[Rfam]
RNA sequence: AAAUAACUCUGCGGUAAUCAUGAAGUCGUGAAGCCGCGAUUCUAAUGUCUAUUAGGAAAAAUCCCAAUAAACAUGAGCGGACUAAUAAUAAAAAGAGAUUAUUCUCUGAAUUUUUUAUUUAUCACGAACGAUUCUACAGACAGUUUUUAAUAGGAUGAUAUUUAACGAAUUCCCUGCCUAAGUGCUUUACCACAUUUCCCAUACUCCCAGAGUGAAAUAGGCGCGUAUAAAAACAGCAAAAAAUGGAUUUUUGCUCAUAUUUCUAGCAAGGAAAGGAUCGUGUGUGAUAUCACCACACACGAUCGACAUUAGACAGGGGUUAGGUCGGGGUUGAGAAUCAGGAGUUGAGAA
Numbered sequence: 001a002a003a004u005a006a007c008u009c010u011g012c013g014g015u016a017a018u019c020a021u022g023a024a025g026u027c028g029u030g031a032a033g034c035c036g037c038g039a040u041u042c043u044a045a046u047g048u049c050u051a052u053u054a055g056g057a058a059a060a061a062u063c064c065c066a067a068u069a070a071a072c073a074u075g076a077g078c079g080g081a082c083u084a085a086u087a088a089u090a091a092a093a094a095g096a097g098a099u100u101a102u103u104c105u106c107u108g109a110a111u112u113u114u115u116u117a118u119u120u121a122u123c124a125c126g127a128a129c130g131a132u133u134c135u136a137c138a139g140a141c142a143g144u145u146u147u148u149a150a151u152a153g154g155a156u157g158a159u160a161u162u163u164a165a166c167g168a169a170u171u172c173c174c175u176g177c178c179u180a181a182g183u184g185c186u187u188u189a190c191c192a193c194a195u196u197u198c199c200c201a202u203a204c205u206c207c208c209a210g211a212g213u214g215a216a217a218u219a220g221g222c223g224c225g226u227a228u229a230a231a232a233a234c235a236g237c238a239a240a241a242a243a244u245g246g247a248u249u250u251u252u253g254c255u256c257a258u259a260u261u262u263c264u265a266g267c268a269a270g271g272a273a274a275g276g277a278u279c280g281u282g283u284g285u286g287a288u289a290u291c292a293c294c295a296c297a298c299a300c301g302a303u304c305g306a307c308a309u310u311a312g313a314c315a316g317g318g319g320u321u322a323g324g325u326c327g328g329g330g331u332u333g334a335g336a337a338u339c340a341g342g343a344g345u346u347g348a349g350a351a
Stems, first nucleotide, its partner, number of pairs: 004347007012036004018031005045074004050069004055064003077125001079123002084119005090113003094107005126148003130144001132142001135139001153204001155202003162181003166176001167174001183194002205336002208333001210331001213328001216325001218323001220321003223256001226253002229250003237245001262318003270310002276304010

Shown here is a 351-nucleotide sequence from Pectobacterium carotovorum, a member of the family "Soft rot Enterobacteriaceae Rev 13 asRNA".
Rfam links the family to the GO term cellular response to starvation.
The source organism's lineage runs through Bacteria, Pseudomonadati, Enterobacterales, Pectobacterium carotovorum and Pectobacterium carotovorum subsp. carotovorum.
Rfam classes the family as an antisense RNA.
About the family: From bacteria cultured under starvation conditions. Antisense to ECA0388.